[Rfam]
RNA sequence: GGAUAUGAGGGUAAUCUGGCUGUGAGAUCUGAUAUGCAUGGAUUGAUCUGACUGAUCUGACUAACUUAGGCAGAUGUUUGCUUUCUUCCUUGACAUUCCAUGUGUGUUCCUCCUCAUACUGUGUGCUUGGUUAAUGAGGGCAGUCUUCCCAAUAGACAUGGUAUUGUUUGUUGGUCAAGGGUGUGUGGUAGCUGGGCUGCCCUGCUGCAAGCUCUAAGUAAGCUCAAGGUCCCUUUGUAGAUGAAUGUAGAGUAGUCAAGCAUCCAAUACUGAAGACACAUCUAAAUGAGGAUCUGCAUGCAGCAGUCUGCCAGCGGCUUU
Numbered sequence: 001g002g003a004u005a006u007g008a009g010g011g012u013a014a015u016c017u018g019g020c021u022g023u024g025a026g027a028u029c030u031g032a033u034a035u036g037c038a039u040g041g042a043u044u045g046a047u048c049u050g051a052c053u054g055a056u057c058u059g060a061c062u063a064a065c066u067u068a069g070g071c072a073g074a075u076g077u078u079u080g081c082u083u084u085c086u087u088c089c090u091u092g093a094c095a096u097u098c099c100a101u102g103u104g105u106g107u108u109c110c111u112c113c114u115c116a117u118a119c120u121g122u123g124u125g126c127u128u129g130g131u132u133a134a135u136g137a138g139g140g141c142a143g144u145c146u147u148c149c150c151a152a153u154a155g156a157c158a159u160g161g162u163a164u165u166g167u168u169u170g171u172u173g174g175u176c177a178a179g180g181g182u183g184u185g186u187g188g189u190a191g192c193u194g195g196g197c198u199g200c201c202c203u204g205c206u207g208c209a210a211g212c213u214c215u216a217a218g219u220a221a222g223c224u225c226a227a228g229g230u231c232c233c234u235u236u237g238u239a240g241a242u243g244a245a246u247g248u249a250g251a252g253u254a255g256u257c258a259a260g261c262a263u264c265c266a267a268u269a270c271u272g273a274a275g276a277c278a279c280a281u282c283u284a285a286a287u288g289a290g291g292a293u294c295u296g297c298a299u300g301c302a303g304c305a306g307u308c309u310g311c312c313a314g315c316g317g318c319u320u321u
Stems, first nucleotide, its partner, number of pairs: 001099003006092006013084002018081001024078002027075005033069001035063001037059002041057004045052001107161002111156002113130002116127001119125001131152002138149003191261003197255002200252001202250004212243001215240001218238005284321003290312002294306004
This 321-nucleotide sequence from Erythrocercus mccallii belongs to the Rfam family "7SK RNA". The family's consensus secondary structure is taken from published work. For this family Rfam cites "Structural analyses of the 7SK ribonucleoprotein (RNP), the most abundant human small RNP of unknown function" (Wassarman and Steitz, Mol Cell Biol, 1991).